The family of this 46-nucleotide sequence from Mytilus galloprovincialis is "Histone 3' UTR stem-loop". The family's consensus secondary structure is taken from published work. Lineage of the source: Eukaryota > Opisthokonta > Bivalvia > Mytilidae > Mytilus.
RNA sequence: ACAACGGCCCUUUUCAGGGCCACCAAUAUUUUUCAAAAAGAGUCCU
Numbered sequence: 001a002c003a004a005c006g007g008c009c010c011u012u013u014u015c016a017g018g019g020c021c022a023c024c025a026a027u028a029u030u031u032u033u034c035a036a037a038a039a040g041a042g043u044c045c046u
Base pairs, nucleotide, nucleotide: 006021007020008019009018010017011016
Rfam 15.1 lists 44,596 matches to the family in 976 species.